Annotation:
Rfam assigns this 102-nucleotide RNA sequence from Monodelphis domestica to the family "mir-454 microRNA precursor family". The source organism's lineage runs through Eukaryota, Eumetazoa, Chordata, Metatheria and Monodelphis. It scores 89 bits against the family's covariance model. On this family, see Glazov et al., Genome Res 2008: "A microRNA catalog of the developing chicken embryo identified by a deep sequencing approach". Rfam links the family to the GO terms RISC complex and miRNA-mediated post-transcriptional gene silencing.
RNA sequence: UUGAUAAUUAAUAGAUCCAUGAACCCUAUCAAUGUGGUCUCUGCUGUGUACAUAGCUGUAAGUAGUGCAAUAUUGCUUAUAGGGUUUUAGUUUUUGGAAAGA
Numbered sequence: 001u002u003g004a005u006a007a008u009u010a011a012u013a014g015a016u017c018c019a020u021g022a023a024c025c026c027u028a029u030c031a032a033u034g035u036g037g038u039c040u041c042u043g044c045u046g047u048g049u050a051c052a053u054a055g056c057u058g059u060a061a062g063u064a065g066u067g068c069a070a071u072a073u074u075g076c077u078u079a080u081a082g083g084g085u086u087u088u089a090g091u092u093u094u095u096g097g098a099a100a101g102a
Stems, first nucleotide, its partner, number of pairs: 021087009030075006037068002041065005